[Rfam]
RNA sequence: GUCAAUGUUAAUCUCGUACUUGGGAUACACCCACAGAGUGUUUGUCACUCUUAACAUCCCGGGAAGGUCUGAGUAAAAGCCACCAGUGUUUUGUGUACAUUCUAGCCGGAUGCUUCCUUAACAAGGAUGAAGAGGGAACCAGAAAUUAUGGUACAAUUUCUAGUCUAGGAUUCCUUGUCUGUGUUGAUAGGGAAGAGACAUAGUUAUUGUUACUAUUGGAAACCCUCAUGGCUGGCAGUUUUAGCACAAUUUACGAGAUGGUCAUAGCCAUAACUCAAUUCAGACUAGUCUUUCUUGGC
Numbered sequence: 001g002u003c004a005a006u007g008u009u010a011a012u013c014u015c016g017u018a019c020u021u022g023g024g025a026u027a028c029a030c031c032c033a034c035a036g037a038g039u040g041u042u043u044g045u046c047a048c049u050c051u052u053a054a055c056a057u058c059c060c061g062g063g064a065a066g067g068u069c070u071g072a073g074u075a076a077a078a079g080c081c082a083c084c085a086g087u088g089u090u091u092u093g094u095g096u097a098c099a100u101u102c103u104a105g106c107c108g109g110a111u112g113c114u115u116c117c118u119u120a121a122c123a124a125g126g127a128u129g130a131a132g133a134g135g136g137a138a139c140c141a142g143a144a145a146u147u148a149u150g151g152u153a154c155a156a157u158u159u160c161u162a163g164u165c166u167a168g169g170a171u172u173c174c175u176u177g178u179c180u181g182u183g184u185u186g187a188u189a190g191g192g193a194a195g196a197g198a199c200a201u202a203g204u205u206a207u208u209g210u211u212a213c214u215a216u217u218g219g220a221a222a223c224c225c226u227c228a229u230g231g232c233u234g235g236c237a238g239u240u241u242u243a244g245c246a247c248a249a250u251u252u253a254c255g256a257g258a259u260g261g262u263c264a265u266a267g268c269c270a271u272a273a274c275u276c277a278a279u280u281c282a283g284a285c286u287a288g289u290c291u292u293u294c295u296u297g298g299c
Stems, first nucleotide, its partner, number of pairs: 001299004010291001013257006022060005036050005069283005078233004098112005113129001115127004130229001132227005151214001258271005
RNA: Nuclear RNase P
Organism: Bombyx mori